Description: The record is a 117-nucleotide RNA sequence from Faucicola atlantae, which matches "ALIL pseudoknot" in Rfam. Pairs were carried over by alignment from the consensus structure, which is taken from published work. On this family, see Mazauric et al., J Biol Chem 2008: "Apical loop-internal loop RNA pseudoknots: a new type of stimulator of -1 translational frameshifting in bacteria". The family's RNA type in Rfam is cis-regulatory element. Rfam 15.1 lists 2,146 matches to the family in 1,098 species.

RNA sequence: CGCUUUUUUCGCCCAGGCGGAGAAGGGCCGCAAACCCAAGUGAUGGUCAAAUUCAUCGACGAUGAAAAAGAAAAAUAUGGGGUCGAGUCGAUUUGCAAAAUCCUGCCAAUCGCCCCA
Numbered sequence: 001c002g003c004u005u006u007u008u009u010c011g012c013c014c015a016g017g018c019g020g021a022g023a024a025g026g027g028c029c030g031c032a033a034a035c036c037c038a039a040g041u042g043a044u045g046g047u048c049a050a051a052u053u054c055a056u057c058g059a060c061g062a063u064g065a066a067a068a069a070g071a072a073a074a075a076u077a078u079g080g081g082g083u084c085g086a087g088u089c090g091a092u093u094u095g096c097a098a099a100a101u102c103c104u105g106c107c108a109a110u111c112g113c114c115c116c117a
Base pairs, nucleotide, nucleotide: 017031018030019029020028078117079116080115081114082113089112090111092109093108095106096105097104